[Rfam]
RNA sequence: CUAAGGAGGAACCGCUAUGCGCAAAGCGCAUAAUUGAAAAUCGGUUCCGACGACCUGCCGCCGAGCGUGGGCGAGGGGGCGAUACAGAUU
Numbered sequence: 001c002u003a004a005g006g007a008g009g010a011a012c013c014g015c016u017a018u019g020c021g022c023a024a025a026g027c028g029c030a031u032a033a034u035u036g037a038a039a040a041u042c043g044g045u046u047c048c049g050a051c052g053a054c055c056u057g058c059c060g061c062c063g064a065g066c067g068u069g070g071g072c073g074a075g076g077g078g079g080c081g082a083u084a085c086a087g088a089u090u
Stems, first nucleotide, its partner, number of pairs: 008048006016032006057080003061076002065072002
A member of the RNA family "GA-cis RNA", 90 nucleotides long.
The family's RNA type in Rfam is small RNA.
The sequence is in the family's curated seed alignment.
The family's consensus secondary structure is taken from published work.